[Rfam]
Shown here is a 514-nucleotide part of an RNA from Pichia californica, a member of the family "Eukaryotic small subunit ribosomal RNA".

RNA sequence: UGUUGCAGUUAAAAAGCUCGUAGUUGAAGUUUGGGCCUGGACGGGCGGUCUACCUAUGGUGAGUACUGCUUCGGCCGGGUCUUUCCUUCUGGCUAACCCUUGUGGUGAACCAGGACGAUUACUUUGAGGAAAUUAGAGUGUUCAAAGCAGGCCUUUGCUCGGAUAUAUUAGCAUGGAAUAAUAGAAUAGGACGUAUGGUUCUAUUUUGUUGGUUUCUAGGACCAUCGUAAUGAUUAAUAGGGACGGUCGGGGGCAUCAGUAUUCAGUUGUCAGAGGUGAAAUUCUUGGAUUAACUGAAGACUAACUACUGCGAAAGCAUUUGCCAAGGACGUUUUCAUUAAUCAAGAACGAAAGUUAGGGGAUCGAAGAUGAUCAGAUACCGUCGUAGUCUUAACCAUAAACUAUGCCGACUAGGGAUCGGGUAGCGCUUUAUGGCCUACCCGGCACCUUGUGAGAAAUCAAAGUCUUUGGGUUCUGGGGGGAGUAUGGUUGCAAGGCUGAAACUUAAAGGAAU
Numbered sequence: 001u002g003u004u005g006c007a008g009u010u011a012a013a014a015a016g017c018u019c020g021u022a023g024u025u026g027a028a029g030u031u032u033g034g035g036c037c038u039g040g041a042c043g044g045g046c047g048g049u050c051u052a053c054c055u056a057u058g059g060u061g062a063g064u065a066c067u068g069c070u071u072c073g074g075c076c077g078g079g080u081c082u083u084u085c086c087u088u089c090u091g092g093c094u095a096a097c098c099c100u101u102g103u104g105g106u107g108a109a110c111c112a113g114g115a116c117g118a119u120u121a122c123u124u125u126g127a128g129g130a131a132a133u134u135a136g137a138g139u140g141u142u143c144a145a146a147g148c149a150g151g152c153c154u155u156u157g158c159u160c161g162g163a164u165a166u167a168u169u170a171g172c173a174u175g176g177a178a179u180a181a182u183a184g185a186a187u188a189g190g191a192c193g194u195a196u197g198g199u200u201c202u203a204u205u206u207u208g209u210u211g212g213u214u215u216c217u218a219g220g221a222c223c224a225u226c227g228u229a230a231u232g233a234u235u236a237a238u239a240g241g242g243a244c245g246g247u248c249g250g251g252g253g254c255a256u257c258a259g260u261a262u263u264c265a266g267u268u269g270u271c272a273g274a275g276g277u278g279a280a281a282u283u284c285u286u287g288g289a290u291u292a293a294c295u296g297a298a299g300a301c302u303a304a305c306u307a308c309u310g311c312g313a314a315a316g317c318a319u320u321u322g323c324c325a326a327g328g329a330c331g332u333u334u335u336c337a338u339u340a341a342u343c344a345a346g347a348a349c350g351a352a353a354g355u356u357a358g359g360g361g362a363u364c365g366a367a368g369a370u371g372a373u374c375a376g377a378u379a380c381c382g383u384c385g386u387a388g389u390c391u392u393a394a395c396c397a398u399a400a401a402c403u404a405u406g407c408c409g410a411c412u413a414g415g416g417a418u419c420g421g422g423u424a425g426c427g428c429u430u431u432a433u434g435g436c437c438u439a440c441c442c443g444g445c446a447c448c449u450u451g452u453g454a455g456a457a458a459u460c461a462a463a464g465u466c467u468u469u470g471g472g473u474u475c476u477g478g479g480g481g482g483a484g485u486a487u488g489g490u491u492g493c494a495a496g497g498c499u500g501a502a503a504c505u506u507a508a509a510g511g512a513a514u
Base pairs, nucleotide, nucleotide: 006477007476008475014474016349018347019346023342024341025340240336241335242334243333244331245330247328248327252324253323254322255321258302259301262298263297264296265295266294267293268292269291273284274283275282310317311316354395355394356393357392358391359390364388368384369383370382371381406473407472408471409466410465411464413449414448415447418444419443420442421441422440423439424438425437427436428435429434453460454459479506480505481504488499489498490497491496

Lineage of the source: Eukaryota > Fungi > Pichiales > Pichiaceae > Pichia. It scores 1750 bits against the family's covariance model. Gene Ontology terms of the family: ribosome and structural constituent of ribosome.